Background
Rfam assigns this 89-nucleotide sequence from Clostridium sp. FS41 to the family "c-di-GMP-I riboswitch aptamer". NCBI's taxonomy places the organism under Bacteria, Bacillati, Clostridia, Clostridiaceae, Clostridium. Gene Ontology term of the family: cyclic-di-GMP binding.
Nucleotides: 089
Stems, first nucleotide, its partner, number of pairs: 012037002017032006040083004046079003049074003056068003
Number, partner (000 for none) and nucleotide at each position: 001000u002000a003000g004000a005000g006000c007000c008000a009000a010000g011000g012037g013036c014000a015000a016000a017032c018031c019030u020029a021028u022027u023000g024000a025000a026000a027022a028021a029020u030019a031018g032017g033000g034000g035000c036013g037012c038000a039000a040083a041082g042081c043080c044000a045000u046079a047078g048077g049074g050073u051072c052000u053000a054000c055000g056068g057067c058066g059000c060000u061000u062000u063000a064000c065000a066058c067057g068056c069000u070000a071000u072051g073050a074049u075000a076000g077048c078047c079046u080043g081042g082041c083040u084000g085000c086000a087000a088000a089000a